[Rfam]
RNA sequence: AAAAAGACAAAUCCUGGGUUUUCGUGUCCAACAUUUAACCGUCCGUCUUAUUUGAAAAAUUUAUGAAAAAAAUUAAAAAGUCAAGUCACGCAUAAAUUAUUAAUCAUAUUUUAUCAUCUAACAACAAUGAAAAUACUAAUUAUAAAAAAAAUUUAUAUAAGACGGACAGUCAAACGUUGGACACGGAGACCCAGGGUUUGUCUUUUU
Number, nucleotide and partner (000 for none) at each position: 001a000002a000003a000004a000005a000006g000007a000008c000009a000010a000011a000012u000013c000014c000015u000016g000017g000018g000019u000020u000021u000022u000023c000024g000025u000026g000027u181028c180029c179030a178031a177032c176033a000034u174035u173036u172037a000038a170039c169040c000041g167042u166043c165044c164045g163046u162047c161048u160049u159050a158051u157052u000053u000054g000055a000056a000057a000058a000059a000060u000061u000062u000063a000064u000065g000066a000067a000068a000069a000070a000071a000072a000073u000074u000075a000076a000077a000078a000079a000080g000081u000082c000083a000084a000085g000086u000087c000088a000089c000090g000091c000092a000093u000094a000095a000096a000097u000098u000099a000100u000101u000102a000103a000104u000105c000106a000107u000108a000109u000110u000111u000112u000113a000114u000115c000116a000117u000118c000119u000120a000121a000122c000123a000124a000125c000126a000127a000128u000129g000130a000131a000132a000133a000134u000135a000136c000137u000138a000139a000140u000141u000142a000143u000144a000145a000146a000147a000148a000149a000150a000151a000152u000153u000154u000155a000156u000157a051158u050159a049160a048161g047162a046163c045164g044165g043166a042167c041168a000169g039170u038171c000172a036173a035174a034175c000176g032177u031178u030179g029180g028181a027182c000183a000184c000185g000186g000187a000188g000189a000190c000191c000192c000193a000194g000195g000196g000197u000198u000199u000200g000201u000202c000203u000204u000205u000206u000207u000
Overview:
The record is a 207-nucleotide RNA sequence from Oryza barthii, which matches "MIR812 microRNA precursor family" in Rfam. The family has 22 seed sequences and 57,451 matches in Rfam 15.1. Lineage of the source: Eukaryota > Streptophytina > Embryophyta > Oryzinae > Oryza.